Notes:
Shown here is an 83-nucleotide RNA from Ixodes scapularis, a member of the family "mir-184 microRNA precursor family". For this family Rfam cites "The developmental miRNA profiles of zebrafish as determined by small RNA cloning" (Chen et al., Genes Dev, 2005). Pairs were carried over by alignment from the consensus structure, which was predicted with PFOLD.
[Rfam]
RNA sequence: GUUUCCACGUUUCCUUAUCAUUCGACUGUCCAGACUGCUGUUUUGGAGACCUGGACGGAGAACUGAUAAGGGCUUGUGGUUGC
Number, nucleotide and partner (000 for none) at each position: 001g000002u000003u000004u000005c000006c000007a000008c000009g000010u000011u000012u072013c071014c070015u069016u068017a067018u066019c065020a064021u062022u061023c060024g000025a000026c058027u057028g000029u000030c054031c053032a000033g000034a000035c000036u000037g000038c000039u000040g000041u000042u000043u000044u000045g000046g000047a000048g000049a000050c000051c000052u000053g031054g030055a000056c000057g027058g026059a000060g023061a022062a021063c000064u020065g019066a018067u017068a016069a015070g014071g013072g012073c000074u000075u000076g000077u000078g000079g000080u000081u000082g000083c000